This 129-nucleotide sequence from Tripterygium wilfordii belongs to the Rfam family "Small nucleolar RNA snoR74". It is annotated as an H/ACA-box small nucleolar RNA. On this family, see Marker et al., Curr Biol 2002: "Experimental RNomics: identification of 140 candidates for small non-messenger RNAs in the plant Arabidopsis thaliana".
RNA sequence: AAAAAAGCAGUGGCCUGUUGCCCUUGUCAACAGGUCACUUGUAAACUUCUGGGGAAUCACUUGUAUUGUUAUUGGGUGAACCUAUGUUUGAUUCUGGUGAUUAAAGGUUCAGUAAAUGAUGCCAAAUCG
Numbered sequence: 001a002a003a004a005a006a007g008c009a010g011u012g013g014c015c016u017g018u019u020g021c022c023c024u025u026g027u028c029a030a031c032a033g034g035u036c037a038c039u040u041g042u043a044a045a046c047u048u049c050u051g052g053g054g055a056a057u058c059a060c061u062u063g064u065a066u067u068g069u070u071a072u073u074g075g076g077u078g079a080a081c082c083u084a085u086g087u088u089u090g091a092u093u094c095u096g097g098u099g100a101u102u103a104a105a106g107g108u109u110c111a112g113u114a115a116a117u118g119a120u121g122c123c124a125a126a127u128c129g
Stems, first nucleotide, its partner, number of pairs: 005048003011037002014034004064121007077111007